[Rfam]
RNA sequence: CAUGCGCUGGUGGGGUCCCUUGGCCUGGCCUGCACCAUCUCACAAUGCAGGACCCCUCAGGGGAUGUCGGAGAGCCAGUUCCGGCCCGAUCCCCACAGGCCAGGCCAAGGGACCCCACCAGUGCACG
Numbered sequence: 001c002a003u004g005c006g007c008u009g010g011u012g013g014g015g016u017c018c019c020u021u022g023g024c025c026u027g028g029c030c031u032g033c034a035c036c037a038u039c040u041c042a043c044a045a046u047g048c049a050g051g052a053c054c055c056c057u058c059a060g061g062g063g064a065u066g067u068c069g070g071a072g073a074g075c076c077a078g079u080u081c082c083g084g085c086c087c088g089a090u091c092c093c094c095a096c097a098g099g100c101c102a103g104g105c106c107a108a109g110g111g112a113c114c115c116c117a118c119c120a121g122u123g124c125a126c127g
Stems, first nucleotide, its partner, number of pairs: 003125002006122001008120003012116014027101006

A member of the RNA family "mir-9193 microRNA precursor family" from Myotis myotis, 127 nucleotides long. Lineage of the source: Eukaryota > Chordata > Vertebrata > Mammalia > Myotis. The family's consensus secondary structure was predicted with RNAalifold.